[Rfam]
RNA sequence: UGCCUCCUUGUUCAGACUGCAGGCUGUGUUUUUAGACUGACUGCACAGAAAGAGGAGGUGGAGAGACCCUACCCUAUAUACACCUCAGCCCAGUCCCUGUUCCUGGUCUGCACUGAGAAUGGGGAGAGCAUGG
Numbered sequence: 001u002g003c004c005u006c007c008u009u010g011u012u013c014a015g016a017c018u019g020c021a022g023g024c025u026g027u028g029u030u031u032u033u034a035g036a037c038u039g040a041c042u043g044c045a046c047a048g049a050a051a052g053a054g055g056a057g058g059u060g061g062a063g064a065g066a067c068c069c070u071a072c073c074c075u076a077u078a079u080a081c082a083c084c085u086c087a088g089c090c091c092a093g094u095c096c097c098u099g100u101u102c103c104u105g106g107u108c109u110g111c112a113c114u115g116a117g118a119a120u121g122g123g124g125a126g127a128g129c130a131u132g133g
Base pairs, nucleotide, nucleotide: 002059003058004057005056006055007054008053020043021042022041026037027036029034072124073123074122075121076120077119086110087109088108090106091105092104093103
Dot-bracket structure: .(((((((...........(((...((.(....).))...))).........)))))))............((((((........(((.((((.........)))).)))........)))))).........
Shown here is a 133-nucleotide sequence from Marmota monax, a member of the family "Small nucleolar RNA SNORA51". Its family is annotated with RNA processing and nucleolus in the Gene Ontology. It scores 98 bits against the family's covariance model. About the family: ACA51 is a member of the H/ACA class of snoRNA that guide the sites of modification of uridines to pseudouridines. The organism belongs to Marmota, within Eukaryota. Pairs were carried over by alignment from the consensus structure, which was predicted with PFOLD. Rfam 15.1 lists 2,121 matches to the family in 210 species.